Rfam assigns this 51-nucleotide RNA from Thermogutta terrifontis to the family "nhaA-I RNA".
Pairs were carried over by alignment from the consensus structure, which is taken from published work.
It is annotated as a riboswitch.
Acidobacteria, Alphaproteobacteria, Betaproteobacteria and Gammaproteobacteria, Verrucomicrobia, cand. division NC10.
RNA sequence: GGGUGCAGUUGCAAAACUGCAGGUUUUUUGCGGGUGGUCGGGCCGCCAUCC
Dot-bracket structure: ....((((((....))))))...........(((((((......)))))))
Numbered sequence: 001g002g003g004u005g006c007a008g009u010u011g012c013a014a015a016a017c018u019g020c021a022g023g024u025u026u027u028u029u030g031c032g033g034g035u036g037g038u039c040g041g042g043c044c045g046c047c048a049u050c051c
Stems, first nucleotide, its partner, number of pairs: 005020006032051007